[Rfam]
RNA sequence: AUUUAAUUAAAGUUUUUCACUUGUAUAUCCCUUGAAUAAGGCGAGGAGUAUCUACCGAGAACCGUAAAAUCUCGACUAUAAGUGAUUUUUAUGCAUAU
Number, nucleotide and partner (000 for none) at each position: 001a000002u000003u000004u000005a000006a000007u000008u000009a000010a000011a000012g000013u000014u000015u000016u000017u000018c084019a083020c082021u081022u080023g079024u078025a077026u000027a000028u000029c000030c046031c045032u044033u043034g042035a000036a000037u000038a000039a000040g000041g000042c034043g033044a032045g031046g030047a000048g000049u000050a000051u000052c000053u000054a000055c000056c074057g073058a072059g071060a070061a000062c000063c000064g000065u000066a000067a000068a000069a000070u060071c059072u058073c057074g056075a000076c000077u025078a024079u023080a022081a021082g020083u019084g018085a000086u000087u000088u000089u000090u000091a000092u000093g000094c000095a000096u000097a000098u000
RNA: Purine riboswitch aptamer